Record summary
Rfam assigns this 128-nucleotide RNA from Candidatus Rhodobacter oscarellae to the family "Ruegeria cis8 sRNA". Lineage of the source: Bacteria > Pseudomonadati > Pseudomonadota > Rhodobacterales > Rhodobacter. The literature on the family includes a 2016 paper in Front Microbiol by Rivers et al., "Experimental Identification of Small Non-Coding RNAs in the Model Marine Bacterium Ruegeria pomeroyi DSS-3". The family's RNA type in Rfam is small RNA. Rfam 15.1 lists 138 matches to the family in 133 species. The base pairs follow the family's consensus structure, which was predicted with RNAfold.
[Rfam]
RNA sequence: AUCGCCAGCACCUUGGCGAUGUAGGGGAUCAGCGGCAGGUUCAGGAUCAAGAGCACCAGGUUGCCGAUAUACAUCGAGAUGAUCACCGCCCAGAAGAUGUUCGGGCUGUCGAUCAUUAGCCGCGGCCC
Numbered sequence: 001a002u003c004g005c006c007a008g009c010a011c012c013u014u015g016g017c018g019a020u021g022u023a024g025g026g027g028a029u030c031a032g033c034g035g036c037a038g039g040u041u042c043a044g045g046a047u048c049a050a051g052a053g054c055a056c057c058a059g060g061u062u063g064c065c066g067a068u069a070u071a072c073a074u075c076g077a078g079a080u081g082a083u084c085a086c087c088g089c090c091c092a093g094a095a096g097a098u099g100u101u102c103g104g105g106c107u108g109u110c111g112a113u114c115a116u117u118a119g120c121c122g123c124g125g126c127c128c
Base pairs, nucleotide, nucleotide: 003018004017005016006015007014008013026128027127029125030124033122034121035120036119038114039113040112043109045107047105048104051101052100057096061093062092063091073083074082075081